[Rfam]
RNA sequence: GGUCGUUCUUUCUUGGACGUUUCCUCCCUAAACUCGGCGGUGCUUCGGCACCGCCUUUUUUUUGGCUUGG
Numbered sequence: 001g002g003u004c005g006u007u008c009u010u011u012c013u014u015g016g017a018c019g020u021u022u023c024c025u026c027c028c029u030a031a032a033c034u035c036g037g038c039g040g041u042g043c044u045u046c047g048g049c050a051c052c053g054c055c056u057u058u059u060u061u062u063u064g065g066c067u068u069g070g
Base pairs, nucleotide, nucleotide: 005018006017007016008015036055037054038053039052040051041050042049043048
RNA: Makes More Granules Regulator RNA (mmgR)